[Rfam]
RNA: Small nucleolar RNA Z118/Z121/Z120
Organism: Oryza rufipogon
RNA sequence: AGUUUGCUCUAAUGACUCAUAUAAGGAUGGUAUCUGAGUGAGGUUGCUCUUAACCACUCCUUUGUUGAUUACAUCCAGAACUGAAAUAUUCGGGGCAAGCA
Numbered sequence: 001a002g003u004u005u006g007c008u009c010u011a012a013u014g015a016c017u018c019a020u021a022u023a024a025g026g027a028u029g030g031u032a033u034c035u036g037a038g039u040g041a042g043g044u045u046g047c048u049c050u051u052a053a054c055c056a057c058u059c060c061u062u063u064g065u066u067g068a069u070u071a072c073a074u075c076c077a078g079a080a081c082u083g084a085a086a087u088a089u090u091c092g093g094g095g096c097a098a099g100c101a
Stems, first nucleotide, its partner, number of pairs: 002100006040062004